[Rfam]
RNA sequence: GUGCAUGUUAAUCCAAGAGUUGUGGCUCUGAAAUAGCUGCAGGUCUCCAACGACAUGCAAGAGCAAGGGGAAGGUCUUUGACUGCUGGGCCUCUUCUGCCUGUUGCUGUCACUCGCCCUUCCUAUACGU
Numbered sequence: 001g002u003g004c005a006u007g008u009u010a011a012u013c014c015a016a017g018a019g020u021u022g023u024g025g026c027u028c029u030g031a032a033a034u035a036g037c038u039g040c041a042g043g044u045c046u047c048c049a050a051c052g053a054c055a056u057g058c059a060a061g062a063g064c065a066a067g068g069g070g071a072a073g074g075u076c077u078u079u080g081a082c083u084g085c086u087g088g089g090c091c092u093c094u095u096c097u098g099c100c101u102g103u104u105g106c107u108g109u110c111a112c113u114c115g116c117c118c119u120u121c122c123u124a125u126a127c128g129u
Base pairs, nucleotide, nucleotide: 013042018038019037020036021035022034023033069122070121071120072119073118074117084109085108086102087101088100089099
The record is a 129-nucleotide RNA sequence from Anas platyrhynchos, which matches "Small nucleolar RNA SNORA44" in Rfam. Rfam links the family to the GO terms nucleolus and RNA processing. By type it is an H/ACA-box small nucleolar RNA. Its Rfam clan is "SNORA44 clan". Rfam describes the family as follows. ACA44 is a member of the H/ACA class of snoRNA that guide the sites of modification of uridines to pseudouridines.